This 180-nucleotide RNA sequence from Ruminiclostridium herbifermentans belongs to the Rfam family "Lysine riboswitch aptamer". The organism belongs to Ruminiclostridium, within Bacteria. The family has 47 seed sequences and 3,224 matches in Rfam 15.1. It scores 125 bits against the family's covariance model. The family's consensus secondary structure is taken from published work.
RNA sequence: CUUUUAGAUAGAGGUGCGUUUUUUAAUAGUAAAAGCAAUGAAGAUAUUCGGGGUCUUGUGAUUUGUUUCGAAAGGAAAAAACGCCGAAGGAGUUACUGGCCCAAUAUUUGUAACUCCUGGUUUCAAGGUUAAUAGCUUUGUGACUGUCAUCAUUUCGCAUGAUGGAGCGCUAUCUGUUUA
Numbered sequence: 001c002u003u004u005u006a007g008a009u010a011g012a013g014g015u016g017c018g019u020u021u022u023u024u025a026a027u028a029g030u031a032a033a034a035g036c037a038a039u040g041a042a043g044a045u046a047u048u049c050g051g052g053g054u055c056u057u058g059u060g061a062u063u064u065g066u067u068u069c070g071a072a073a074g075g076a077a078a079a080a081a082c083g084c085c086g087a088a089g090g091a092g093u094u095a096c097u098g099g100c101c102c103a104a105u106a107u108u109u110g111u112a113a114c115u116c117c118u119g120g121u122u123u124c125a126a127g128g129u130u131a132a133u134a135g136c137u138u139u140g141u142g143a144c145u146g147u148c149a150u151c152a153u154u155u156c157g158c159a160u161g162a163u164g165g166a167g168c169g170c171u172a173u174c175u176g177u178u179u180a
Stems, first nucleotide, its partner, number of pairs: 006175006016084009033068006088118009098108002119145004124140006147165007